[Rfam]
RNA sequence: CUAAUUUAUAUUGUAUCCAAAUUGAAGCCAGAGUUACAUAAAAAGAAAAUUUUAGUCAUUCAAGUGGGGCAAAGGAAAUAUCCUUUUAAAACUCAGGCAGACUGAGUGUUUGUCCUAUAACCUGUCAGAGGAAACAAAU
Numbered sequence: 001c002u003a004a005u006u007u008a009u010a011u012u013g014u015a016u017c018c019a020a021a022u023u024g025a026a027g028c029c030a031g032a033g034u035u036a037c038a039u040a041a042a043a044a045g046a047a048a049a050u051u052u053u054a055g056u057c058a059u060u061c062a063a064g065u066g067g068g069g070c071a072a073a074g075g076a077a078a079u080a081u082c083c084u085u086u087u088a089a090a091a092c093u094c095a096g097g098c099a100g101a102c103u104g105a106g107u108g109u110u111u112g113u114c115c116u117a118u119a120a121c122c123u124g125u126c127a128g129a130g131g132a133a134a135c136a137a138a139u
Base pairs, nucleotide, nucleotide: 014071016069017068018067022063023062024061025060081132082131083130084129085128086127096114097113098112099111100110101109102108
RNA: Small nucleolar RNA SNORA27
Organism: Castor canadensis